[Rfam]
RNA sequence: CUUACCUGGGGAGAUCCUGAUGAGUGCAAGCUCCGUCAGGAAGUCAGCAGAAGCCAUAGUACCUAGCAGUAACGAGCUGCAUUAGUUGCAGAGGUCUCACAAGUUAGGGAAGGGC
Numbered sequence: 001c002u003u004a005c006c007u008g009g010g011g012a013g014a015u016c017c018u019g020a021u022g023a024g025u026g027c028a029a030g031c032u033c034c035g036u037c038a039g040g041a042a043g044u045c046a047g048c049a050g051a052a053g054c055c056a057u058a059g060u061a062c063c064u065a066g067c068a069g070u071a072a073c074g075a076g077c078u079g080c081a082u083u084a085g086u087u088g089c090a091g092a093g094g095u096c097u098c099a100c101a102a103g104u105u106a107g108g109g110a111a112g113g114g115c
Stems, first nucleotide, its partner, number of pairs: 003022002006019001008017003044051002053115003062108006
RNA: Group II catalytic intron D1-D4-1